Shown here is a 79-nucleotide RNA sequence from Amycolatopsis acidicola, a member of the family "SAH (S-adenosyl-L-homocysteine) riboswitch aptamer". On this family, see Wang et al., Mol Cell 2008: "Riboswitches that sense S-adenosylhomocysteine and activate genes involved in coenzyme recycling". Rfam links the family to the GO terms S-adenosylhomocysteine metabolic process and regulation of gene expression. The match comes from Rfam's covariance-model search (41 bits). Taxonomically the source falls in Amycolatopsis (Bacteria, Bacillati, Pseudonocardiales, Pseudonocardiaceae).

RNA sequence: GUGGCCGAGAGGCGCUGCAACGGACCUGGGUCCGCCACGCUCGGCCGGCAACGACUGCGAACAAGGGCGCCUCCCAAGA
Numbered sequence: 001g002u003g004g005c006c007g008a009g010a011g012g013c014g015c016u017g018c019a020a021c022g023g024a025c026c027u028g029g030g031u032c033c034g035c036c037a038c039g040c041u042c043g044g045c046c047g048g049c050a051a052c053g054a055c056u057g058c059g060a061a062c063a064a065g066g067g068c069g070c071c072u073c074c075c076a077a078g079a
Stems, first nucleotide, its partner, number of pairs: 002047007021034005